Small nucleolar RNA SNORA57: a 140-nucleotide RNA sequence from Alligator sinensis. The match comes from Rfam's covariance-model search (86 bits). The family's consensus secondary structure was predicted with PFOLD. By type it is an H/ACA-box small nucleolar RNA. Rfam links the family to the GO terms nucleolus and RNA processing. For this family Rfam cites "Identification of 13 novel human modification guide RNAs" (Vitali et al., Nucleic Acids Res, 2003).

RNA sequence: CCUCCAGUUCUUGGCACGCAUGCAGUAGCUCGUUCCUUCUGUGUGUGAUGUACGGAGGAAAAGGAAAUGCAAGAUCCAGUGUUGUGUUCAGUACCUGCAGCUCCCAUCUGCUGGUUCUAUUCUCAUUCACUGGGACAUGU
Numbered sequence: 001c002c003u004c005c006a007g008u009u010c011u012u013g014g015c016a017c018g019c020a021u022g023c024a025g026u027a028g029c030u031c032g033u034u035c036c037u038u039c040u041g042u043g044u045g046u047g048a049u050g051u052a053c054g055g056a057g058g059a060a061a062a063g064g065a066a067a068u069g070c071a072a073g074a075u076c077c078a079g080u081g082u083u084g085u086g087u088u089c090a091g092u093a094c095c096u097g098c099a100g101c102u103c104c105c106a107u108c109u110g111c112u113g114g115u116u117c118u119a120u121u122c123u124c125a126u127u128c129a130c131u132g133g134g135a136c137a138u139g140u
Stems, first nucleotide, its partner, number of pairs: 001058005015045006022038001024037002077132005094114002097111004